[Rfam]
The record is a 176-nucleotide RNA sequence from Myotis brandtii, which matches "Small nucleolar RNA SNORA81" in Rfam.
The source organism's lineage runs through Eukaryota, Chordata, Gnathostomata, Teleostomi and Myotis.
Gene Ontology terms of the family: RNA processing and nucleolus.
RNA sequence: GCCUUCUGCACAGGCGCUGUGCUAAAGCUGAGGGAAUAGGCUCCCAUCGUGGCUUUUGUAAUGAGGCCAGCAGAGCACACACAAGAAGACCAGUAACUGCACUAGACAGUAAAGACCAGGGUGAACCUCUUUCUUAAUGUCCAAUGUCCUUUGUCUUAAGAGUUCGUGCAAUAUGU
Numbered sequence: 001g002c003c004u005u006c007u008g009c010a011c012a013g014g015c016g017c018u019g020u021g022c023u024a025a026a027g028c029u030g031a032g033g034g035a036a037u038a039g040g041c042u043c044c045c046a047u048c049g050u051g052g053c054u055u056u057u058g059u060a061a062u063g064a065g066g067c068c069a070g071c072a073g074a075g076c077a078c079a080c081a082c083a084a085g086a087a088g089a090c091c092a093g094u095a096a097c098u099g100c101a102c103u104a105g106a107c108a109g110u111a112a113a114g115a116c117c118a119g120g121g122u123g124a125a126c127c128u129c130u131u132u133c134u135u136a137a138u139g140u141c142c143a144a145u146g147u148c149c150u151u152u153g154u155c156u157u158a159a160g161a162g163u164u165c166g167u168g169c170a171a172u173a174u175g176u
Base pairs, nucleotide, nucleotide: 017075018074020072021071022070023069029063030062033056034055037051038050040048042046098170099169100168101167102166104164105163118147120145122143123142125140